[Rfam]
The family of this 141-nucleotide sequence from Rhizophagus irregularis is "U11 spliceosomal RNA".
The family's consensus secondary structure is taken from published work.
A search with the family's covariance model found it, with a score of 66 bits.

RNA sequence: UAAAAUGGUGUGUGCCGACUUUCAUUAUGCCACAUGGACUUGAAUGCCCAUGCAGAAUCGCCAUCAAGAGAUUUUGCGCACAUAAUUUUUAUAUUAUGAAUGGGUGGUUGUCUGGCUUCGCUUUAAGCUGACGCUACCCUU
Numbered sequence: 001u002a003a004a005a006u007g008g009u010g011u012g013u014g015c016c017g018a019c020u021u022u023c024a025u026u027a028u029g030c031c032a033c034a035u036g037g038a039c040u041u042g043a044a045u046g047c048c049c050a051u052g053c054a055g056a057a058u059c060g061c062c063a064u065c066a067a068g069a070g071a072u073u074u075u076g077c078g079c080a081c082a083u084a085a086u087u088u089u090u091a092u093a094u095u096a097u098g099a100a101u102g103g104g105u106g107g108u109u110g111u112c113u114g115g116c117u118u119c120g121c122u123u124u125a126a127g128c129u130g131a132c133g134c135u136a137c138c139c140u141u
Stems, first nucleotide, its partner, number of pairs: 008081005013032002016029002033052005039046001053076007099141002103138005109133004